RNA sequence: AUGGUCUAACCAGUUCAACUGUCGGGGUUACACGCAGAGUCUAUAUGACUCCAUUUACCCGGUGGAAAGUCCCCGGAGAUAGGACGGAAAGCGUCUCAUUGUGAUGAUGAAGGCCGGACUAAUGUCGCAGGGAGUUAAGAUGUAUUUUAUAUAUCUACCUGUGCGAUGUUGGAUCCGUAGCGUUGCUCAGAGCACAGCUAAUGUUGUAAGGAUUAUUCAGUCCAACCAAAUGGGGCUUACUCGGUUAUGGACCA
Numbered sequence: 001a002u003g004g005u006c007u008a009a010c011c012a013g014u015u016c017a018a019c020u021g022u023c024g025g026g027g028u029u030a031c032a033c034g035c036a037g038a039g040u041c042u043a044u045a046u047g048a049c050u051c052c053a054u055u056u057a058c059c060c061g062g063u064g065g066a067a068a069g070u071c072c073c074c075g076g077a078g079a080u081a082g083g084a085c086g087g088a089a090a091g092c093g094u095c096u097c098a099u100u101g102u103g104a105u106g107a108u109g110a111a112g113g114c115c116g117g118a119c120u121a122a123u124g125u126c127g128c129a130g131g132g133a134g135u136u137a138a139g140a141u142g143u144a145u146u147u148u149a150u151a152u153a154u155c156u157a158c159c160u161g162u163g164c165g166a167u168g169u170u171g172g173a174u175c176c177g178u179a180g181c182g183u184u185g186c187u188c189a190g191a192g193c194a195c196a197g198c199u200a201a202u203g204u205u206g207u208a209a210g211g212a213u214u215a216u217u218c219a220g221u222c223c224a225a226c227c228a229a230a231u232g233g234g235g236c237u238u239a240c241u242c243g244g245u246u247a248u249g250g251a252c253c254a
Stems, first nucleotide, its partner, number of pairs: 002254004007247005014208001016206004023062001025060004037051005067238003071235004083095004096107004111178001113176001119172005125166004132160001134158002142152004210222002213219001
The record is a 254-nucleotide RNA from Leptidea sinapis, which matches "RNase MRP" in Rfam. The source organism's lineage runs through Eukaryota, Bilateria, Protostomia, Dismorphiinae and Leptidea. A search with the family's covariance model found it, with a score of 81 bits. RNase MRP is an enzymatically active ribonucleoprotein with two distinct roles in eukaryotes. In mitochondria it plays a direct role in the initiation of mitochondrial DNA replication. A reference for the family is Schmitt et al. (1993), "Secondary structure of RNase MRP RNA as predicted by phylogenetic comparison", FASEB J.